mir-129 microRNA precursor family: a 73-nucleotide RNA from Clupea harengus.

RNA sequence: GCGAAUCUUUUUGCGGUCUGGGCUUGCUGUUCUAAGCAAUCAAAUGGGAAGCCCUUACCCCAAAAAGCAUUUG
Numbered sequence: 001g002c003g004a005a006u007c008u009u010u011u012u013g014c015g016g017u018c019u020g021g022g023c024u025u026g027c028u029g030u031u032c033u034a035a036g037c038a039a040u041c042a043a044a045u046g047g048g049a050a051g052c053c054c055u056u057a058c059c060c061c062a063a064a065a066a067g068c069a070u071u072u073g
Base pairs, nucleotide, nucleotide: 007067008066009065010064011063012062013061015059016058017057020054021053022052023051025049027047028046
Lineage of the source: Eukaryota > Bilateria > Deuterostomia > Clupei > Clupea. A search with the family's covariance model found it, with a score of 84 bits. For this family Rfam cites "Identification of tissue-specific microRNAs from mouse" (Lagos-Quintana et al., Curr Biol, 2002).